Shown here is a 56-nucleotide sequence from Illicium henryi, a member of the family "Plastid-psbA-3 3UTR RNA". The family is grouped with related families in Rfam's "Plastid-psbA 3UTR RNA clan". Plastid psbA-3 is a non-coding RNA (ncRNA) present in plastids. It was identified in inverted repeat sequences in the 3 prime untranslate region (3UTR) of photosystem II quinone-binding protein (psbA). A reference for the family is Richter et al. (2023), "Retrograde signaling in plants: A critical review focusing on the GUN pathway and beyond", Plant Commun. Taxonomically the source falls in Illicium (Eukaryota, Streptophyta, Tracheophyta, Spermatophyta).
[Rfam]
RNA sequence: AAGGAACAAUACCCCAUUUCUUGUUUUAUAAAGAAGUGGGGUAUUGUUCCUUCAAU
Numbered sequence: 001a002a003g004g005a006a007c008a009a010u011a012c013c014c015c016a017u018u019u020c021u022u023g024u025u026u027u028a029u030a031a032a033g034a035a036g037u038g039g040g041g042u043a044u045u046g047u048u049c050c051u052u053c054a055a056u
Stems, first nucleotide, its partner, number of pairs: 001052013018036001019034004